[Rfam]
RNA sequence: GAAGUCCACUAGGGGCGCCAUUAAGAUGGCUGAGAUAAGGAGGAGCUACUCCUUGGUCCCUUUGAACCUGAACUGGUUAGUACCAGCGGAGGAAAGUGGAGUCGGGAACCU
Numbered sequence: 001g002a003a004g005u006c007c008a009c010u011a012g013g014g015g016c017g018c019c020a021u022u023a024a025g026a027u028g029g030c031u032g033a034g035a036u037a038a039g040g041a042g043g044a045g046c047u048a049c050u051c052c053u054u055g056g057u058c059c060c061u062u063u064g065a066a067c068c069u070g071a072a073c074u075g076g077u078u079a080g081u082a083c084c085a086g087c088g089g090a091g092g093a094a095a096g097u098g099g100a101g102u103c104g105g106g107a108a109c110c111u
Stems, first nucleotide, its partner, number of pairs: 006099005011061004016055001017030005037054005067092003073086004

The family of this 111-nucleotide RNA from Radiobacillus deserti is "TPP riboswitch aptamer (THI element)". A search with the family's covariance model found it, with a score of 81 bits. The source organism's lineage runs through Bacteria, Bacillati, Caryophanales, Bacillaceae and Radiobacillus.